[Rfam]
RNA: Small nucleolar RNA SNORD66
RNA sequence: CUCCACUGAUGACCUUCAUUAAGAGCCACGUGUCUGGGCCACUGAUCUACACUGAUGGGAUUGAGGAACUGAGGAG
Numbered sequence: 001c002u003c004c005a006c007u008g009a010u011g012a013c014c015u016u017c018a019u020u021a022a023g024a025g026c027c028a029c030g031u032g033u034c035u036g037g038g039c040c041a042c043u044g045a046u047c048u049a050c051a052c053u054g055a056u057g058g059g060a061u062u063g064a065g066g067a068a069c070u071g072a073g074g075a076g
Base pairs, nucleotide, nucleotide: 001076002075003074004073
Dot-bracket structure: ((((....................................................................))))